Shown here is a 132-nucleotide sequence from Rhinolophus ferrumequinum, a member of the family "Small nucleolar RNA SNORA63".
A search with the family's covariance model found it, with a score of 99 bits.
From the family's description: E3 belongs to the H/ACA class of snoRNAs and is involved in the processing of eukaryotic pre-rRNA and has regions of complementarity to 18S rRNA. E3 is encoded in introns in the gene for protein synthesis initiation factor 4AII.

[Rfam]
RNA sequence: ACGCAGGAUCUAGUUACAAUGUAGCUGUGAAGUGCUACAUUGUCUUUGCUCCCUGCACAAAAUAAAACUGUUUCCUUUCUAGCCCUGUCGCCCAUGGUACCAUAGCUGUCGGGGAUGCAUGGUCUCACACAU
Numbered sequence: 001a002c003g004c005a006g007g008a009u010c011u012a013g014u015u016a017c018a019a020u021g022u023a024g025c026u027g028u029g030a031a032g033u034g035c036u037a038c039a040u041u042g043u044c045u046u047u048g049c050u051c052c053c054u055g056c057a058c059a060a061a062a063u064a065a066a067a068c069u070g071u072u073u074c075c076u077u078u079c080u081a082g083c084c085c086u087g088u089c090g091c092c093c094a095u096g097g098u099a100c101c102a103u104a105g106c107u108g109u110c111g112g113g114g115a116u117g118c119a120u121g122g123u124c125u126c127a128c129a130c131a132u
Stems, first nucleotide, its partner, number of pairs: 003056005016043010084113004089108002092105001